This 216-nucleotide RNA sequence from Chiloscyllium punctatum belongs to the Rfam family "Small nucleolar RNA SNORA73 family".

Nucleotides: 216
Base pairs, nucleotide, nucleotide: 001106002105003104004103005102006101007100008044009043010042011041012040014036015035016034019028020027021026047098048097049096050095056091057090058089059088060085062083063082065078150208151207152206153205154204155203156202167194168193169192170191171190172189
Number, partner (000 for none) and nucleotide at each position: 001106u002105c003104a004103a005102c006101g007100u008044g009043g010042g011041c012040a013000u014036c015035c016034g017000g018000u019028g020027a021026g022000g023000u024000u025000g026021c027020u028019c029000u030000c031000a032000u033000c034016u035015g036014g037000c038000u039000c040012u041011g042010u043009c044008c045000g046000u047098g048097u049096g050095g051000c052000g053000c054000a055000u056091g057090g058089g059088a060085g061000c062083g063082u064000a065078g066000g067000c068000c069000u070000u071000u072000g073000g074000u075000c076000u077000a078065u079000g080000a081000c082063g083062u084000a085060u086000a087000g088059u089058c090057c091056c092000g093000u094000u095050c096049c097048a098047u099000a100007a101006c102005g103004u104003u105002g106001g107000a108000g109000a110000g111000c112000a113000u114000g115000u116000g117000u118000g119000u120000c121000c122000c123000c124000a125000g126000c127000u128000u129000u130000u131000g132000g133000g134000c135000u136000g137000g138000u139000g140000a141000g142000g143000a144000c145000a146000g147000c148000a149000u150208c151207c152206u153205g154204u155203a156202u157000a158000u159000u160000c161000c162000u163000a164000g165000a166000c167194c168193u169192u170191c171190u172189c173000a174000g175000u176000a177000u178000g179000u180000g181000a182000g183000g184000u185000g186000a187000c188000u189172g190171a191170g192169g193168a194167g195000a196000u197000a198000a199000a200000c201000c202156a203155u204154g205153c206152a207151g208150g209000g210000u211000a212000c213000a214000g215000u216000u
A search with the family's covariance model found it, with a score of 185 bits. On this family, see Enright et al., RNA 1996: "5'ETS rRNA processing facilitated by four small RNAs: U14, E3, U17, and U3". Taxonomically the source falls in Chiloscyllium (Eukaryota, Metazoa, Vertebrata, Galeomorphii).